[Rfam]
RNA sequence: CUUACAGAUUUUAUUUGGCAUUCUGUUUACCUCCUUAGCUUUCUGUACUACUGUAUUUGCAUUUGGUGUGUAAUGGAGGAGGUGGGCAUGCUGCCAACGGAGCUCUGUUGG
Numbered sequence: 001c002u003u004a005c006a007g008a009u010u011u012u013a014u015u016u017g018g019c020a021u022u023c024u025g026u027u028u029a030c031c032u033c034c035u036u037a038g039c040u041u042u043c044u045g046u047a048c049u050a051c052u053g054u055a056u057u058u059g060c061a062u063u064u065g066g067u068g069u070g071u072a073a074u075g076g077a078g079g080a081g082g083u084g085g086g087c088a089u090g091c092u093g094c095c096a097a098c099g100g101a102g103c104u105c106u107g108u109u110g111g
Stems, first nucleotide, its partner, number of pairs: 011101001015097006024088013
RNA: MIR394 microRNA precursor family